Shown here is a 79-nucleotide RNA sequence from Brenthis ino, a member of the family "mir-2767 microRNA precursor family".
The match comes from Rfam's covariance-model search (77 bits).
Lineage of the source: Eukaryota > Bilateria > Ecdysozoa > Eumetabola > Brenthis.
Its family is annotated with RISC complex and miRNA-mediated post-transcriptional gene silencing in the Gene Ontology.
RNA sequence: UUUUAUUGUCGUCCAAAGUAAAUCUCGUGCGGCUUGUUGCGUUCCAAGCCGUAAGAGAUUGACUUAGAUUGAUAAUAAA
Numbered sequence: 001u002u003u004u005a006u007u008g009u010c011g012u013c014c015a016a017a018g019u020a021a022a023u024c025u026c027g028u029g030c031g032g033c034u035u036g037u038u039g040c041g042u043u044c045c046a047a048g049c050c051g052u053a054a055g056a057g058a059u060u061g062a063c064u065u066a067g068a069u070u071g072a073u074a075a076u077a078a079a
Stems, first nucleotide, its partner, number of pairs: 006075006014067001016065004021060006028053009